[Rfam]
RNA sequence: UUGGCCGUGUACUCCCAGAUCCCGUCGGCCGUGGUGAGCACGGUGUCACCGAAGUAGUCGCCGUCGGCGAGGGUGCCGAGCACCGUCUGGUCGCCGUACGCGCCGGUGCCGACCUUGCUGAUCUUGCCGUGCGCCACGAGGAAGACCUGGUCGGCCUGGUGACCGAACUCCACGAGCGCGUCGCCGGGUUCGAACUCGUGCUGCACGAACCGCCCGGCCAGCUCGGUCAGCACCUCCUCGUCGUCGUAGCCGCGCAGCGGGGGCAGCUCGCCCAGCUCCGGCGGGAUCACCCGCACCUCGGCACCGGUGGUGGCGAACGUGACGCGGCCGUCGCCGACGGAGUAGCUCAGCCGGCGGUUCACGCGGUACGCCCCGCCCGAGACCUCGACCCACGGCAGCACCUUGAGCAGCCACCGCGUGGUGAUGCCCUGCAUCUGCGGAACGGACUUGGUCGUCGUCGCGAGCGUGCGGGCCGCGGCCCGGCCCAGGCUCAGUUGCGGUUGUUCCG
Number, nucleotide and partner (000 for none) at each position: 001u000002u000003g390004g389005c000006c387007g386008u000009g384010u000011a000012c381013u380014c000015c000016c327017a000018g325019a000020u322021c321022c000023c319024g318025u316026c315027g000028g000029c000030c000031g000032u313033g000034g311035u310036g000037a308038g000039c306040a000041c000042g305043g304044u303045g302046u000047c000048a000049c301050c300051g299052a298053a000054g233055u232056a000057g000058u229059c000060g227061c226062c225063g224064u000065c111066g110067g109068c108069g000070a000071g000072g000073g000074u000075g103076c000077c102078g101079a000080g099081c000082a097083c096084c000085g094086u093087c000088u000089g000090g000091u000092c000093g086094c085095c000096g083097u082098a000099c080100g000101c078102g077103c075104c000105g000106g000107u000108g068109c067110c066111g065112a000113c000114c000115u000116u000117g222118c221119u220120g219121a000122u217123c216124u000125u000126g213127c212128c000129g210130u209131g206132c000133g204134c203135c000136a000137c000138g199139a000140g197141g000142a000143a196144g195145a000146c000147c000148u000149g000150g191151u000152c000153g000154g189155c188156c187157u186158g185159g184160u183161g177162a000163c000164c174165g173166a000167a000168c000169u000170c000171c000172a000173c165174g164175a000176g000177c161178g000179c000180g000181u000182c000183g160184c159185c158186g157187g156188g155189u154190u000191c150192g000193a000194a000195c144196u143197c140198g000199u138200g000201c000202u000203g134204c133205a000206c131207g000208a000209a130210c129211c000212g127213c126214c000215c000216g123217g122218c000219c120220a119221g118222c117223u000224c063225g062226g061227u060228c000229a058230g000231c000232a055233c054234c000235u295236c000237c293238u000239c000240g290241u289242c000243g287244u286245c285246g000247u000248a000249g282250c281251c280252g279253c000254g278255c000256a277257g276258c275259g000260g271261g000262g269263g000264c000265a000266g000267c000268u000269c262270g000271c260272c000273c000274a000275g258276c257277u256278c254279c252280g251281g250282c249283g000284g000285g245286a244287u243288c000289a241290c240291c000292c000293g237294c000295a235296c000297c000298u052299c051300g050301g049302c045303a044304c043305c042306g039307g000308u037309g000310g035311u034312g000313g032314c000315g026316a025317a000318c024319g023320u000321g021322a020323c000324g000325c018326g000327g016328c000329c342330g000331u340332c339333g000334c000335c000336g000337a000338c000339g332340g331341a000342g329343u000344a000345g000346c000347u000348c000349a000350g000351c379352c000353g377354g376355c375356g374357g373358u000359u000360c000361a000362c370363g369364c000365g000366g000367u000368a000369c363370g362371c000372c000373c357374c356375g355376c354377c353378c000379g351380a013381g012382a000383c000384c009385u000386c007387g006388a000389c004390c003391c431392a430393c000394g428395g427396c426397a425398g000399c423400a422401c421402c000403u418404u000405g000406a000407g415408c000409a000410g000411c000412c000413a000414c000415c407416g000417c000418g403419u000420g000421g401422u400423g399424a000425u397426g396427c395428c394429c000430u392431g391432c000433a000434u000435c000436u000437g476438c475439g474440g473441a000442a000443c470444g469445g000446a467447c000448u464449u463450g000451g461452u460453c000454g000455u000456c000457g000458u000459c000460g452461c451462g000463a449464g448465c000466g000467u446468g000469c444470g443471g000472g000473c440474c439475g438476c437477g507478g506479c000480c503481c000482g501483g000484c499485c000486c497487a496488g495489g000490c000491u000492c000493a000494g000495u488496u487497g486498c000499g484500g000501u482502u000503g480504u000505u000506c478507c477508g000
RNA: Saccharopolyspora sRNA 350